[Rfam]
RNA sequence: CGCCGGGCCACGCCGCCCCAACGCGGCGCGUGCUCUCUGUGAGGAGAGACUGC
Numbered sequence: 001c002g003c004c005g006g007g008c009c010a011c012g013c014c015g016c017c018c019c020a021a022c023g024c025g026g027c028g029c030g031u032g033c034u035c036u037c038u039g040u041g042a043g044g045a046g047a048g049a050c051u052g053c
Base pairs, nucleotide, nucleotide: 011028012027013026014025015024016023033048034047035046036045037044038043

Annotation:
The record is a 53-nucleotide RNA sequence from Alterirhizorhabdus solaris, which matches "serC leader" in Rfam. The literature on the family includes a 2005 paper in Genome Biol by Corbino et al., "Evidence for a second class of S-adenosylmethionine riboswitches and other regulatory RNA motifs in alpha-proteobacteria". A search with the family's covariance model found it, with a score of 49 bits.